[Rfam]
RNA sequence: CACGCCUGCGAGGAUCAAUAGGUCCCAACAGGUCCCUCGGAUCAACCUUACAGUUGGACCUGAGACGAAAGGGUGGUUUUUAUGGAUGUCUUUUGUCCACCCGUCAAAGCCCUCCAUGUCUCUUGCUGGCGAGAGCGUUGGAGAGGAUUCAAAAACUAGUCCAAGUU
Numbered sequence: 001c002a003c004g005c006c007u008g009c010g011a012g013g014a015u016c017a018a019u020a021g022g023u024c025c026c027a028a029c030a031g032g033u034c035c036c037u038c039g040g041a042u043c044a045a046c047c048u049u050a051c052a053g054u055u056g057g058a059c060c061u062g063a064g065a066c067g068a069a070a071g072g073g074u075g076g077u078u079u080u081u082a083u084g085g086a087u088g089u090c091u092u093u094u095g096u097c098c099a100c101c102c103g104u105c106a107a108a109g110c111c112c113u114c115c116a117u118g119u120c121u122c123u124u125g126c127u128g129g130c131g132a133g134a135g136c137g138u139u140g141g142a143g144a145g146g147a148u149u150c151a152a153a154a155a156c157u158a159g160u161c162c163a164a165g166u167u
Stems, first nucleotide, its partner, number of pairs: 007030002012026002016021001035067001036064005042057001048053001085161003088156002091154005110146002112143004120135006
RNA: Ascomycota telomerase RNA, nucleotides 939 to 1105